[Rfam]
RNA sequence: CCGUACUAGGUGGGGAGGUAGCGGUGCCCUGAACUCGCAAUCCGCUCUAGCGAGACUGAAUUCCUUUUUGAGGUUAGUACGCUGUAGGGUCUGCCUUCUGUAAGUGGUGUUGACGUCUGGGUCCUGCGCAAUGGAAAUCCAUGAACCAUGUCAGGUCCGGAAGGAAGCAGCAUUAAGUGGAAGCUUCCAUGUGCCGCAGGGGUGCCUGGGCUGAGCUAACUGCAGGAGUAACGCUUAUGGCGGCUAAUCAAGGAAAGGUGUACGG
Dot-bracket structure: ((((((..(((((((.(.(...).).))))...(((((...........)))))))).....(((((((..(((((...(((((((((...((..((((((..(((((......((((((((((((((((.(((((.(((((.....((((....(((....)))....))))...)))))...)))))))...))))))...))))))))...))).)).)))))).))...)))))))))..)))))..))))))).))))))